RNA sequence: GUAACAAAGGGGUAGCGAAUAGAUGGCAAAGGGGUAGGCUAUUACAUAUAGUUUUGUUAACAUCUAUUUGUUCGAGUUACUAAUCAAACAUCUUCAAUAUUUAUUACUUACUUUCCUUUCUAUUUAACCGGCUAGCGACGCUAGUCGGUUUUAUU
Numbered sequence: 001g002u003a004a005c006a007a008a009g010g011g012g013u014a015g016c017g018a019a020u021a022g023a024u025g026g027c028a029a030a031g032g033g034g035u036a037g038g039c040u041a042u043u044a045c046a047u048a049u050a051g052u053u054u055u056g057u058u059a060a061c062a063u064c065u066a067u068u069u070g071u072u073c074g075a076g077u078u079a080c081u082a083a084u085c086a087a088a089c090a091u092c093u094u095c096a097a098u099a100u101u102u103a104u105u106a107c108u109u110a111c112u113u114u115c116c117u118u119u120c121u122a123u124u125u126a127a128c129c130g131g132c133u134a135g136c137g138a139c140g141c142u143a144g145u146c147g148g149u150u151u152u153a154u155u
Stems, first nucleotide, its partner, number of pairs: 001080005014072005020059002028119007038052003127149009
Annotation
A member of the RNA family "RNA S.aureus Orsay G" from Staphylococcus saprophyticus, 155 nucleotides long. The source organism's lineage runs through Bacteria, Bacillota, Caryophanales, Staphylococcus and Staphylococcus saprophyticus. The family's consensus secondary structure is taken from published work. On this family, see Marchais et al., RNA Biol 2010: "RsaOG, a new staphylococcal family of highly transcribed non-coding RNA".